[Rfam]
RNA sequence: UGACCGCUUGCGGGAGAGAGCUUUUGAUGCGGUUGAAACCGUAUGAAAAGCCGCCGAAGGAGCAACCGCCCCGGAAACUCUCAGGCUAAAGGACCGUUAGCGGCAG
Numbered sequence: 001u002g003a004c005c006g007c008u009u010g011c012g013g014g015a016g017a018g019a020g021c022u023u024u025u026g027a028u029g030c031g032g033u034u035g036a037a038a039c040c041g042u043a044u045g046a047a048a049a050g051c052c053g054c055c056g057a058a059g060g061a062g063c064a065a066c067c068g069c070c071c072c073g074g075a076a077a078c079u080c081u082c083a084g085g086c087u088a089a090a091g092g093a094c095c096g097u098u099a100g101c102g103g104c105a106g
Stems, first nucleotide, its partner, number of pairs: 006101003010097004020051006053086003056082002060080003066074002
RNA: Glycine riboswitch aptamer
Organism: Iodidimonas nitroreducens